Shown here is a 91-nucleotide RNA from Candidatus Epulonipiscioides saccharophilum, a member of the family "TPP riboswitch aptamer (THI element)". NCBI's taxonomy places the organism under Bacteria, Bacillati, Clostridia, Lachnospirales, Candidatus Epulonipiscioides.
[Rfam]
RNA sequence: UAAAAAAGCUAGGGGUGCUUUAAUAAGCUGAGAAAUACCCUUAAUACUUGAACUGGAUAAUACCAGCGUAAGGAAGCAUAGUAUAAACAAG
Numbered sequence: 001u002a003a004a005a006a007a008g009c010u011a012g013g014g015g016u017g018c019u020u021u022a023a024u025a026a027g028c029u030g031a032g033a034a035a036u037a038c039c040c041u042u043a044a045u046a047c048u049u050g051a052a053c054u055g056g057a058u059a060a061u062a063c064c065a066g067c068g069u070a071a072g073g074a075a076g077c078a079u080a081g082u083a084u085a086a087a088c089a090a091g
Base pairs, nucleotide, nucleotide: 006079008077009076010075011041012040013039014038016035017028018027019026020025047072048071049070050069053066054065055064056063